[Rfam]
RNA: Lysine riboswitch aptamer
Organism: Bombilactobacillus apium
RNA sequence: AAUCAAAGAAGAGGUUGCUAAAUCUACUAGUCAACGUUGCGAGUUGUUGUAGCAAUUUUAACCAGCGUUAAACAGAGCUUUAGCCGAAAUUACUUCCUACUACAAAAGGUCGUGAUUGGGUCUAGAUUGCAUAAGUCUAGAACUGUCGUAGCAAAAAUUUAGCUACGGGGCGCUAUCUACGAU
Numbered sequence: 001a002a003u004c005a006a007a008g009a010a011g012a013g014g015u016u017g018c019u020a021a022a023u024c025u026a027c028u029a030g031u032c033a034a035c036g037u038u039g040c041g042a043g044u045u046g047u048u049g050u051a052g053c054a055a056u057u058u059u060a061a062c063c064a065g066c067g068u069u070a071a072a073c074a075g076a077g078c079u080u081u082a083g084c085c086g087a088a089a090u091u092a093c094u095u096c097c098u099a100c101u102a103c104a105a106a107a108g109g110u111c112g113u114g115a116u117u118g119g120g121u122c123u124a125g126a127u128u129g130c131a132u133a134a135g136u137c138u139a140g141a142a143c144u145g146u147c148g149u150a151g152c153a154a155a156a157a158u159u160u161a162g163c164u165a166c167g168g169g170g171c172g173c174u175a176u177c178u179a180c181g182a183u
Stems, first nucleotide, its partner, number of pairs: 006178001008176001010174002017084006024077002033069007088117006096109003118144002121141008146168007